[Rfam]
A member of the RNA family "int-alpA RNA" from Sphaerotilus sulfidivorans, 70 nucleotides long. NCBI's taxonomy places the organism under Bacteria, Pseudomonadota, Burkholderiales, Sphaerotilaceae, Sphaerotilus.
RNA sequence: GUCACGGAUAGGCCCGCGAACCGAAAAGCGGGGCACCUUCACCCGCCUGCCGUGGCUCCACGAUGAAGGG
Numbered sequence: 001g002u003c004a005c006g007g008a009u010a011g012g013c014c015c016g017c018g019a020a021c022c023g024a025a026a027a028g029c030g031g032g033g034c035a036c037c038u039u040c041a042c043c044c045g046c047c048u049g050c051c052g053u054g055g056c057u058c059c060a061c062g063a064u065g066a067a068g069g070g
Base pairs, nucleotide, nucleotide: 001056002055003054004053005052006051007050011022012021028046029045030044031043032042036070037069038068039067
Overview:
Acidobacteria (1 example), Planctomycetes (1 example), Proteobacteria.